[Rfam]
RNA sequence: UUCUGAGCGCGUGUUUCAUCACGAUAUUGGGAAAGCUCACGCCUUUGAGGCGUGCGGUGCGGAUAUAUUGCGCAGUCAUCACCUCGGCCAUGCUGGCGCGUGUCAUCCGCGCGAUAUAGCCCAUGCCGUAAAGCGCAAUGGUCAAAACCGGCAGAAAGAAAUUCUCGAACGUGGCCUGG
Numbered sequence: 001u002u003c004u005g006a007g008c009g010c011g012u013g014u015u016u017c018a019u020c021a022c023g024a025u026a027u028u029g030g031g032a033a034a035g036c037u038c039a040c041g042c043c044u045u046u047g048a049g050g051c052g053u054g055c056g057g058u059g060c061g062g063a064u065a066u067a068u069u070g071c072g073c074a075g076u077c078a079u080c081a082c083c084u085c086g087g088c089c090a091u092g093c094u095g096g097c098g099c100g101u102g103u104c105a106u107c108c109g110c111g112c113g114a115u116a117u118a119g120c121c122c123a124u125g126c127c128g129u130a131a132a133g134c135g136c137a138a139u140g141g142u143c144a145a146a147a148c149c150g151g152c153a154g155a156a157a158g159a160a161a162u163u164c165u166c167g168a169a170c171g172u173g174g175c176c177u178g179g
Base pairs, nucleotide, nucleotide: 004141006139009136010135011134012133014131015130016128020125021124028123029122030121031120038113040111041110042109046105047104048103050101051100052099053098054097055075057073058072059071060070061069062068082096083095147177149174151172152171154165156163157162

A member of the RNA family "Ruegeria cis52 sRNA" from Roseovarius azorensis, 179 nucleotides long.
Its family is annotated with regulation of gene expression in the Gene Ontology.
For this family Rfam cites "Experimental Identification of Small Non-Coding RNAs in the Model Marine Bacterium Ruegeria pomeroyi DSS-3" (Rivers et al., Front Microbiol, 2016).